[Rfam]
RNA sequence: GGCAACUAGCCUCCGAGAGGGGGUGUAAAGAUGGACAAGAUCCUCGAGCUAUUCAUUAUGCCGCUCCUGGUCGACAUAGUCGGAGGACUCAUCGAUCGCUGGCUGGACGAUGACGAAUGAAUAGAAGCUAGCUGCCAUCCAGCCCACGCGCUAUGGCCGCAUACGUCGUAGUGAAAAA
Numbered sequence: 001g002g003c004a005a006c007u008a009g010c011c012u013c014c015g016a017g018a019g020g021g022g023g024u025g026u027a028a029a030g031a032u033g034g035a036c037a038a039g040a041u042c043c044u045c046g047a048g049c050u051a052u053u054c055a056u057u058a059u060g061c062c063g064c065u066c067c068u069g070g071u072c073g074a075c076a077u078a079g080u081c082g083g084a085g086g087a088c089u090c091a092u093c094g095a096u097c098g099c100u101g102g103c104u105g106g107a108c109g110a111u112g113a114c115g116a117a118u119g120a121a122u123a124g125a126a127g128c129u130a131g132c133u134g135c136c137a138u139c140c141a142g143c144c145c146a147c148g149c150g151c152u153a154u155g156g157c158c159g160c161a162u163a164c165g166u167c168g169u170a171g172u173g174a175a176a177a178a
Base pairs, nucleotide, nucleotide: 001136002135003134004133006131007130008129011022012021013020014019023036024035026033050123051122052121053120054119055118056117057116061073063071064070078089079088080087081086092106093105094104096102097101149173150172151171152170153169154168155167156166
Shown here is a 178-nucleotide sequence from Lacticaseibacillus camelliae, a member of the family "Enterococcus sRNA B11".
A search with the family's covariance model found it, with a score of 57 bits.